[Rfam]
Annotation
M23 RNA: a 55-nucleotide RNA sequence.
RNA sequence: CGGCGCGCCGCGUGCCGAUGAACGCGGCAGUCGGGCACGACCCGGCAGGGAAAGG
Numbered sequence: 001c002g003g004c005g006c007g008c009c010g011c012g013u014g015c016c017g018a019u020g021a022a023c024g025c026g027g028c029a030g031u032c033g034g035g036c037a038c039g040a041c042c043c044g045g046c047a048g049g050g051a052a053a054g055g
Stems, first nucleotide, its partner, number of pairs: 007028006030046006
Rfam classes the family as a small RNA.